[Rfam]
RNA sequence: GAAAACAAGCAGAAGCAUCCCGCUUCUCACCUAAGUCGACAAUAUGUCCUUGGGUUGAUAGAUAAAUGUUUUACUAAAAACGACAUUUAACAGCGGGAGCGUAAAUGCUCUCGCUGUUUUGCUUUUUU
Number, nucleotide and partner (000 for none) at each position: 001g000002a000003a000004a000005a000006c000007a000008a000009g000010c000011a027012g026013a025014a024015g023016c022017a000018u000019c000020c000021c000022g016023c015024u014025u013026c012027u011028c000029a055030c054031c053032u000033a000034a000035g000036u000037c000038g048039a047040c046041a000042a000043u000044a000045u000046g040047u039048c038049c000050u000051u000052g000053g031054g030055u029056u000057g000058a000059u000060a000061g000062a000063u000064a000065a000066a000067u000068g000069u000070u000071u000072u000073a000074c000075u000076a000077a000078a000079a000080a000081c000082g000083a000084c000085a000086u000087u000088u000089a000090a000091c000092a115093g114094c113095g112096g111097g110098a109099g108100c107101g106102u000103a000104a000105a000106u101107g100108c099109u098110c097111u096112c095113g094114c093115u092116g000117u000118u000119u000120u000121g000122c000123u000124u000125u000126u000127u000128u000